[Rfam]
RNA sequence: UGACGGGGGCUCACACAAGCGGUGGAGCAUGUGGCUUAAUUCGAGGCUACGCGAAAAACCUUAUCCUGGGCUUGACAUGCAGGGAUUAGCCGGCGGAAACGUCGGUGACGCCGCAAGGUGGAACCUGCACAGGUGCUGCAUGGCUGUCGUCAGCUCGUGCCGUGAGGUGUCGGGUUAAGUCCCUUAACGAGCGAAACCCCUGCGGCCAGUUGCCAACACAUCCUGGUGGGGACUCUGGCCGGACCGCCGGCGUGAAGCCGGAGGAAGGCGGGGAUGACGUCAAGUCCUCAUGGCCCUUAUGCCCAGGGCUGCACACGUGCUACAAUGGCGGGGACAAAGCGUCGCCACGCCGUAAGGCCGAGCCAACCGCGUAAACCCCGCCCCAGUUCGGAUCGAGGGCUGCAACCCGCCCUCGUGAAGCCGGAAUCGCUAGUAAUCGCGGAUCAGCAUUGCCGCGGUGAAUGUGUUCCUGAGCCUUGUACACACCGCCCGUCAAGCCACCAAAGGGGGGGGCACCCGAAGUCGCCGACGUCUCACGACGGGCGCCGAAGGUGAAACUCCUGAUGGGGACUAAGUCGUAACAAGG
Numbered sequence: 001u002g003a004c005g006g007g008g009g010c011u012c013a014c015a016c017a018a019g020c021g022g023u024g025g026a027g028c029a030u031g032u033g034g035c036u037u038a039a040u041u042c043g044a045g046g047c048u049a050c051g052c053g054a055a056a057a058a059c060c061u062u063a064u065c066c067u068g069g070g071c072u073u074g075a076c077a078u079g080c081a082g083g084g085a086u087u088a089g090c091c092g093g094c095g096g097a098a099a100c101g102u103c104g105g106u107g108a109c110g111c112c113g114c115a116a117g118g119u120g121g122a123a124c125c126u127g128c129a130c131a132g133g134u135g136c137u138g139c140a141u142g143g144c145u146g147u148c149g150u151c152a153g154c155u156c157g158u159g160c161c162g163u164g165a166g167g168u169g170u171c172g173g174g175u176u177a178a179g180u181c182c183c184u185u186a187a188c189g190a191g192c193g194a195a196a197c198c199c200c201u202g203c204g205g206c207c208a209g210u211u212g213c214c215a216a217c218a219c220a221u222c223c224u225g226g227u228g229g230g231g232a233c234u235c236u237g238g239c240c241g242g243a244c245c246g247c248c249g250g251c252g253u254g255a256a257g258c259c260g261g262a263g264g265a266a267g268g269c270g271g272g273g274a275u276g277a278c279g280u281c282a283a284g285u286c287c288u289c290a291u292g293g294c295c296c297u298u299a300u301g302c303c304c305a306g307g308g309c310u311g312c313a314c315a316c317g318u319g320c321u322a323c324a325a326u327g328g329c330g331g332g333g334a335c336a337a338a339g340c341g342u343c344g345c346c347a348c349g350c351c352g353u354a355a356g357g358c359c360g361a362g363c364c365a366a367c368c369g370c371g372u373a374a375a376c377c378c379c380g381c382c383c384c385a386g387u388u389c390g391g392a393u394c395g396a397g398g399g400c401u402g403c404a405a406c407c408c409g410c411c412c413u414c415g416u417g418a419a420g421c422c423g424g425a426a427u428c429g430c431u432a433g434u435a436a437u438c439g440c441g442g443a444u445c446a447g448c449a450u451u452g453c454c455g456c457g458g459u460g461a462a463u464g465u466g467u468u469c470c471u472g473a474g475c476c477u478u479g480u481a482c483a484c485a486c487c488g489c490c491c492g493u494c495a496a497g498c499c500a501c502c503a504a505a506g507g508g509g510g511g512g513g514c515a516c517c518c519g520a521a522g523u524c525g526c527c528g529a530c531g532u533c534u535c536a537c538g539a540c541g542g543g544c545g546c547c548g549a550a551g552g553u554g555a556a557a558c559u560c561c562u563g564a565u566g567g568g569g570a571c572u573a574a575g576u577c578g579u580a581a582c583a584a585g586g
Stems, first nucleotide, its partner, number of pairs: 001483002003480003007477007015467002019430005024323001026321008034312002040055004065307007078129006089106007109120004132296002135294004141290002143285003146281001148279002153192006159168003172183003198273004203241007213230002217228003244264002247261005327382007339370003344363002349358003389420001394415007436459007486585001488582001491578002496572002499569001501567003506562005514554004522547001524545004530541004
RNA: Bacterial small subunit ribosomal RNA, nucleotides 901 to 1486